This 87-nucleotide RNA sequence from Triticum turgidum belongs to the Rfam family "MIR1120/MIR1122 microRNA precursor family". The literature on the family includes a 2007 paper in Genome Biol by Yao et al., "Cloning and characterization of microRNAs from wheat (Triticum aestivum L.)".
[Rfam]
Nucleotides: 087
Stems, first nucleotide, its partner, number of pairs: 003085003007081005013075002016072002019069017037051005
Number, partner (000 for none) and nucleotide at each position: 001000c002000u003085a004084c005083u006000c007081c008080c009079u010078u011077u012000g013075u014074c015000c016072c017071a018000a019069a020068g021067u022066a023065u024064a025063a026062g027061a028060a029059u030058g031057u032056u033055u034054u035053u036000a037051a038050c039049a040048u041047u042000a043000u044000a045000c046000u047041a048040g049039u050038g051037u052000c053035a054034a055033a056032a057031a058030c059029a060028u061027u062026c063025u064024u065023a066022u067021a068020u069019u070000a071017u072016g073000a074014g075013a076000c077011g078010g079009a080008g081007g082000g083005a084004g085003u086000a087000g
It scores 88 bits against the family's covariance model. Rfam links the family to the GO terms RISC complex and miRNA-mediated post-transcriptional gene silencing.